[Rfam]
RNA sequence: AAAUUCCAAAAUUUUUAUUUUUAAUAAUUUUGAUGAAAGUCAAUGGAUAAAGCAUCUCAGAUGGUUUUUUAUUCUUUUCUCUGAAUGAGAUUUCGAAUUAUACGCCCAUCUUACAACA
Numbered sequence: 001a002a003a004u005u006c007c008a009a010a011a012u013u014u015u016u017a018u019u020u021u022u023a024a025u026a027a028u029u030u031u032g033a034u035g036a037a038a039g040u041c042a043a044u045g046g047a048u049a050a051a052g053c054a055u056c057u058c059a060g061a062u063g064g065u066u067u068u069u070u071a072u073u074c075u076u077u078u079c080u081c082u083g084a085a086u087g088a089g090a091u092u093u094c095g096a097a098u099u100a101u102a103c104g105c106c107c108a109u110c111u112u113a114c115a116a117c118a
Stems, first nucleotide, its partner, number of pairs: 004046002012038003020033002023030002059111006071098004078090004

A member of the RNA family "Tetrahymena snoRNA TtnuHACA17" from Tetrahymena malaccensis, 118 nucleotides long. It is annotated as an H/ACA-box small nucleolar RNA. For this family Rfam cites "Experimental identification and analysis of macronuclear non-coding RNAs from the ciliate Tetrahymena thermophila" (Andersen and Nielsen, Nucleic Acids Res, 2012).